[Rfam]
RNA sequence: UCUCUGUGCAUGCCGGCUGCUGAGAACCAUGUCUGAUCAGAGCUGGGUACUGCCUGUUCAGAACAAACAUCGCUUUCUAAAAGGCGGCCAAAUGGC
Numbered sequence: 001u002c003u004c005u006g007u008g009c010a011u012g013c014c015g016g017c018u019g020c021u022g023a024g025a026a027c028c029a030u031g032u033c034u035g036a037u038c039a040g041a042g043c044u045g046g047g048u049a050c051u052g053c054c055u056g057u058u059c060a061g062a063a064c065a066a067a068c069a070u071c072g073c074u075u076u077c078u079a080a081a082a083g084g085c086g087g088c089c090a091a092a093u094g095g096c
Base pairs, nucleotide, nucleotide: 002095003094007090013087014086015085017083021079022078024076025075026074028072030069031068032067034065035064037062038061040059041058042057043056045054046053
RNA: mir-589 microRNA precursor family
Organism: Mustela putorius